Nucleotides: 114
Base pairs, nucleotide, nucleotide: 001114002113004111007108008107009106010105011104013102014101018097019096021094037077038076039075040074049063050062
Number, partner (000 for none) and nucleotide at each position: 001114g002113u003000g004111g005000g006000a007108u008107a009106c010105g011104g012000u013102g014101a015000c016000a017000u018097g019096g020000c021094u022000c023000c024000g025000g026000u027000c028000a029000c030000g031000g032000g033000u034000u035000u036000c037077g038076g039075g040074a041000a042000g043000g044000c045000a046000g047000u048000g049063g050062g051000a052000a053000c054000u055000u056000g057000u058000u059000g060000u061000g062050c063049c064000a065000u066000c067000a068000g069000c070000g071000g072000u073000g074040u075039c076038u077037u078000g079000g080000u081000c082000a083000u084000g085000g086000c087000c088000c089000u090000u091000c092000c093000c094021a095000u096019u097018c098000c099000c100000a101014u102013c103000a104011u105010u106009g107008u108007g109000a110000a111004c112000a113002a114001u